[Rfam]
The record is a 95-nucleotide RNA sequence from Spinacia oleracea, which matches "Small nucleolar RNA Z266" in Rfam. The family's RNA type in Rfam is C/D-box small nucleolar RNA. Gene Ontology terms of the family: RNA processing and nucleolus.
RNA sequence: GAUUGGCAAGAAUGAUGAUUCAAUUAGAUGUGUGAAAGGAGCAAUUCUUGAUGAACAUAAAACUUUUGAGGCAUAAUUAGUCUGACUUGCCAAUU
Numbered sequence: 001g002a003u004u005g006g007c008a009a010g011a012a013u014g015a016u017g018a019u020u021c022a023a024u025u026a027g028a029u030g031u032g033u034g035a036a037a038g039g040a041g042c043a044a045u046u047c048u049u050g051a052u053g054a055a056c057a058u059a060a061a062a063c064u065u066u067u068g069a070g071g072c073a074u075a076a077u078u079a080g081u082c083u084g085a086c087u088u089g090c091c092a093a094u095u
Stems, first nucleotide, its partner, number of pairs: 001095010

Pairs were carried over by alignment from the consensus structure, which was predicted with PFOLD.